[Rfam]
RNA sequence: CGGUGAGGUAGAGGCGCAAAUAAGAUGAGUAAUCAAUAGGAGAAUGACAACGAUGAUUAUUGAUGAAGGGCUUAUUUGCCGAAGCGUAAUAAGGGUCAAACUUAUUAUUUGCUGGGUUGUCUUUGAAUAAGAGGCAAACUGUCAUGCUACUGUUCGCAUGGAGUACUACAGAUCGA
Dot-bracket structure: .......((((....(((((((((.......((((((((.................))))))))......)))))))))...(((((((((((.......)))))))..))))((.((((((((.....)))))))).)).((((((........))))))....)))).......
Numbered sequence: 001c002g003g004u005g006a007g008g009u010a011g012a013g014g015c016g017c018a019a020a021u022a023a024g025a026u027g028a029g030u031a032a033u034c035a036a037u038a039g040g041a042g043a044a045u046g047a048c049a050a051c052g053a054u055g056a057u058u059a060u061u062g063a064u065g066a067a068g069g070g071c072u073u074a075u076u077u078g079c080c081g082a083a084g085c086g087u088a089a090u091a092a093g094g095g096u097c098a099a100a101c102u103u104a105u106u107a108u109u110u111g112c113u114g115g116g117u118u119g120u121c122u123u124u125g126a127a128u129a130a131g132a133g134g135c136a137a138a139c140u141g142u143c144a145u146g147c148u149a150c151u152g153u154u155c156g157c158a159u160g161g162a163g164u165a166c167u168a169c170a171g172a173u174c175g176a
Stems, first nucleotide, its partner, number of pairs: 008169004016079009032064008083113004087107007114140002117137008142161006